Record summary
Rfam assigns this 71-nucleotide RNA from Danaus plexippus to the family "mir-11 microRNA precursor family".
RNA sequence: UCAUGUAGCUAGCACUCGCGCUGUGACAUGUGUGUCAGUGUCACAUCACAGUCAGAGUUCUAGCUUCACGG
Numbered sequence: 001u002c003a004u005g006u007a008g009c010u011a012g013c014a015c016u017c018g019c020g021c022u023g024u025g026a027c028a029u030g031u032g033u034g035u036c037a038g039u040g041u042c043a044c045a046u047c048a049c050a051g052u053c054a055g056a057g058u059u060c061u062a063g064c065u066u067c068a069c070g071g
Stems, first nucleotide, its partner, number of pairs: 004068002009063004014058004021051006030044003

NCBI's taxonomy places the organism under Eukaryota, Pancrustacea, Hexapoda, Ditrysia, Danaus plexippus. Rfam 15.1 lists 138 matches to the family in 136 species. A reference for the family is Li et al. (2009), "Direct sequencing and expression analysis of a large number of miRNAs in Aedes aegypti and a multi-species survey of novel mosquito miRNAs", BMC Genomics.